The record is a 140-nucleotide sequence from Saccharibacillus brassicae, which matches "Glycine riboswitch aptamer" in Rfam. The organism belongs to Saccharibacillus, within Bacteria.
[Rfam]
RNA sequence: GUGAAAGCAUAGGGAGAGAGCACCGGAAGCGAGAAUGGCUUUGCGGGUGCCGCCGAAGGAGUAAACCGAACAUUGGAGCAAGGUCUAUGGACCUCGCGUCAAGCGGUGAAUCUCUCAGGCAAAAGGACCUGUGCCGGACG
Number, nucleotide and partner (000 for none) at each position: 001g000002u000003g000004a000005a000006a000007g134008c133009a132010u131011a130012g129013g128014g000015a000016g000017a000018g000019a000020g050021c049022a048023c047024c000025g000026g000027a000028a000029g000030c000031g000032a000033g000034a000035a000036u000037g000038g000039c000040u000041u000042u000043g000044c000045g000046g000047g023048u022049g021050c020051c000052g120053c119054c118055g116056a115057a000058g000059g114060a113061g112062u000063a000064a000065a107066c106067c105068g104069a000070a000071c000072a000073u000074u000075g000076g000077a000078g000079c000080a000081a000082g000083g000084u000085c000086u000087a000088u000089g000090g000091a000092c000093c000094u000095c000096g000097c000098g000099u000100c000101a000102a000103g000104c068105g067106g066107u065108g000109a000110a000111u000112c061113u060114c059115u056116c055117a000118g054119g053120c052121a000122a000123a000124a000125g000126g000127a000128c013129c012130u011131g010132u009133g008134c007135c000136g000137g000138a000139c000140g000